[Rfam]
RNA sequence: UAGAGGAGUCGGGGCCAGGAGCCCCCCCUGAGCCCAGGAUACCACUGCAAGUCGGGGGGCA
Numbered sequence: 001u002a003g004a005g006g007a008g009u010c011g012g013g014g015c016c017a018g019g020a021g022c023c024c025c026c027c028c029u030g031a032g033c034c035c036a037g038g039a040u041a042c043c044a045c046u047g048c049a050a051g052u053c054g055g056g057g058g059g060c061a
Base pairs, nucleotide, nucleotide: 008040009039010038012035013034014033015032016030017029018028019027022059023058024057025056026054
The family of this 61-nucleotide sequence from Cricetulus griseus is "Gag/pol translational readthrough site".
Gene Ontology term of the family: viral translational readthrough.
A search with the family's covariance model found it, with a score of 68 bits.
Rfam 15.1 lists 3,368 matches to the family in 94 species.
Lineage of the source: Eukaryota > Gnathostomata > Euteleostomi > Muroidea > Cricetulus.
The family's RNA type in Rfam is cis-regulatory element.